Overview
The record is a 114-nucleotide RNA sequence from Salmo salar, which matches "Potassium channel RNA editing signal" in Rfam. Taxonomically the source falls in Salmo (Eukaryota, Chordata, Gnathostomata, Clupeocephala). Rfam classes the family as a cis-regulatory element.

[Rfam]
RNA sequence: GUGGGCUAUGGGGACAUGUGUCCGAUCACCAUGGGCGGUAAGAUGGUGGGGACGCUGUGCGCCAUCGCUGGUGUGCUGACCAUCGCCUUACCCGUCCCCGUCAUCGUGUCCAAC
Numbered sequence: 001g002u003g004g005g006c007u008a009u010g011g012g013g014a015c016a017u018g019u020g021u022c023c024g025a026u027c028a029c030c031a032u033g034g035g036c037g038g039u040a041a042g043a044u045g046g047u048g049g050g051g052a053c054g055c056u057g058u059g060c061g062c063c064a065u066c067g068c069u070g071g072u073g074u075g076c077u078g079a080c081c082a083u084c085g086c087c088u089u090a091c092c093c094g095u096c097c098c099c100g101u102c103a104u105c106g107u108g109u110c111c112a113a114c
Base pairs, nucleotide, nucleotide: 001114002113004111005110007108008107009106010105011104013102014101015100018097020095021094037077038076039075040074049063050062
Dot-bracket structure: ((.((.(((((.(((..(.((...............((((........((...........))..........))))................)).)..))).))))).)).))
Rfam describes the family as follows. This family represents a group of sequences related to the human potassium channel Kv1.1 hairpin element which directs the efficient modification of an adenosine to inosine by an adenosine deaminase acting on RNA (ADAR). The ADAR modification causes an isoleucine/valine recoding event which lies in the ion-conducting pore of the potassium channel. The match comes from Rfam's covariance-model search (108 bits). A reference for the family is Bhalla et al. (2004), "Control of human potassium channel inactivation by editing of a small mRNA hairpin", Nat Struct Mol Biol.